[Rfam]
Source information: Nematode sRNA ceN72-3_ceN74-2: a 154-nucleotide sequence from Caenorhabditis remanei.
RNA sequence: CACUUCGGUCCGAAGUCGAUGGGUUAUCUGCCUUUCCUUCUGCUUGCAGAAGGCCUCCGGUUUCCUUGUGAAACCAAAAACUGUUCAUCAAACGAACAAAUCGCGUUCCCAAAAGAAUGCAAAACCCUUCCCAUCGCACGGCCUCCAGCGAAGG
Numbered sequence: 001c002a003c004u005u006c007g008g009u010c011c012g013a014a015g016u017c018g019a020u021g022g023g024u025u026a027u028c029u030g031c032c033u034u035u036c037c038u039u040c041u042g043c044u045u046g047c048a049g050a051a052g053g054c055c056u057c058c059g060g061u062u063u064c065c066u067u068g069u070g071a072a073a074c075c076a077a078a079a080a081c082u083g084u085u086c087a088u089c090a091a092a093c094g095a096a097c098a099a100a101u102c103g104c105g106u107u108c109c110c111a112a113a114a115g116a117a118u119g120c121a122a123a124a125c126c127c128u129u130c131c132c133a134u135c136g137c138a139c140g141g142c143c144u145c146c147a148g149c150g151a152a153g154g
Stems, first nucleotide, its partner, number of pairs: 003153002006150002009147001012142001015139002017136007036053007061073004103120006
The literature on the family includes a 2015 paper in J Cell Sci by Kowalski et al., "Non-coding stem-bulge RNAs are required for cell proliferation and embryonic development in C. elegans". The family has 13 seed sequences and 521 matches in Rfam 15.1.